[Rfam]
RNA: SAH (S-adenosyl-L-homocysteine) riboswitch aptamer
Organism: Comamonas flocculans
RNA sequence: UUCUCCGAGGAGCGUUGCAGCACCCCCAGCACGCGGGGCGCGAGGCUCGGAAACUCCCCCUUUGCAACGACGCUCACCCACG
Numbered sequence: 001u002u003c004u005c006c007g008a009g010g011a012g013c014g015u016u017g018c019a020g021c022a023c024c025c026c027c028a029g030c031a032c033g034c035g036g037g038g039c040g041c042g043a044g045g046c047u048c049g050g051a052a053a054c055u056c057c058c059c060c061u062u063u064g065c066a067a068c069g070a071c072g073c074u075c076a077c078c079c080a081c082g
Stems, first nucleotide, its partner, number of pairs: 002053001004051005021040001023038004